[Rfam]
RNA sequence: CCUAUGGACUGUUAUAACAAAUCGUAGUAGCUUCGGCAAGGCGAGACAGGGUGAAGUAGGAA
Dot-bracket structure: (((((...(((((........(((.....((....))....))))))))......)))))..
Numbered sequence: 001c002c003u004a005u006g007g008a009c010u011g012u013u014a015u016a017a018c019a020a021a022u023c024g025u026a027g028u029a030g031c032u033u034c035g036g037c038a039a040g041g042c043g044a045g046a047c048a049g050g051g052u053g054a055a056g057u058a059g060g061a062a
Stems, first nucleotide, its partner, number of pairs: 001060005009049005022044003030037002
Shown here is a 62-nucleotide RNA, a member of the family "RAGATH-18 RNA". Pairs were carried over by alignment from the consensus structure, which is taken from published work. Actinobacteria, Firmicutes, Fusobacteria, Thermotogae (1 example). By type it is a small RNA.